[Rfam]
RNA sequence: GACUUAUAUUCUGUAGCAAGGUUAAGCAUAUUGUGGAGCCGUAGGGAAACCGAGUCUUAAUAGGGCGUUCAGUUGCAGGGUAUAGACCCGAAACCCGGCGAUCUAUCCAUGAGCAGGUUGAAGAUCAGGUAACACUGAUUGGAGGACCGAACCCACUGUCGUUGAAAAGCCAGGGGAUGACUUGUGGAUCGGAGUGAAAGGCUAAUCAAGCCGGGAGAUAGCUGGUU
Numbered sequence: 001g002a003c004u005u006a007u008a009u010u011c012u013g014u015a016g017c018a019a020g021g022u023u024a025a026g027c028a029u030a031u032u033g034u035g036g037a038g039c040c041g042u043a044g045g046g047a048a049a050c051c052g053a054g055u056c057u058u059a060a061u062a063g064g065g066c067g068u069u070c071a072g073u074u075g076c077a078g079g080g081u082a083u084a085g086a087c088c089c090g091a092a093a094c095c096c097g098g099c100g101a102u103c104u105a106u107c108c109a110u111g112a113g114c115a116g117g118u119u120g121a122a123g124a125u126c127a128g129g130u131a132a133c134a135c136u137g138a139u140u141g142g143a144g145g146a147c148c149g150a151a152c153c154c155a156c157u158g159u160c161g162u163u164g165a166a167a168a169g170c171c172a173g174g175g176g177a178u179g180a181c182u183u184g185u186g187g188a189u190c191g192g193a194g195u196g197a198a199a200g201g202c203u204a205a206u207c208a209a210g211c212c213g214g215g216a217g218a219u220a221g222c223u224g225g226u227u
Stems, first nucleotide, its partner, number of pairs: 005084013020040004026034003044051002054066004087225002090222001094215006103191001105189009114179001116148004123140006152176003156173003160169001193203003
A member of the RNA family "Bacterial large subunit ribosomal RNA" from Bermanella marisrubri, 227 nucleotides of a longer RNA.
The family's consensus secondary structure is taken from published work.
Its Rfam clan is "LSU clan".
Its family is annotated with ribosome and structural constituent of ribosome in the Gene Ontology.